[Rfam]
RNA: Small nucleolar RNA SNORD2
Organism: Hipposideros armiger
RNA sequence: CAGUGAAAUGAUGGCAAUCAGUUUUCGGGACUGACCUGAAAUGAAGAGAACACUCAUUGCUGAUUACUU
Numbered sequence: 001c002a003g004u005g006a007a008a009u010g011a012u013g014g015c016a017a018u019c020a021g022u023u024u025u026c027g028g029g030a031c032u033g034a035c036c037u038g039a040a041a042u043g044a045a046g047a048g049a050a051c052a053c054u055c056a057u058u059g060c061u062g063a064u065u066a067c068u069u
Base pairs, nucleotide, nucleotide: 002068003067004066005065006064